[Rfam]
RNA sequence: UCAGCCGAGGGGCGCUGCGACCGCCGGAGACUCUCCGCCGGCCAGGCUCGGCCAAGCCACAACGGCGCCCGGUUCGU
Numbered sequence: 001u002c003a004g005c006c007g008a009g010g011g012g013c014g015c016u017g018c019g020a021c022c023g024c025c026g027g028a029g030a031c032u033c034u035c036c037g038c039c040g041g042c043c044a045g046g047c048u049c050g051g052c053c054a055a056g057c058c059a060c061a062a063c064g065g066c067g068c069c070c071g072g073u074u075c076g077u
Base pairs, nucleotide, nucleotide: 004052005051006050007049008048021041022040023039025037026036027035028034
RNA: SAH (S-adenosyl-L-homocysteine) riboswitch aptamer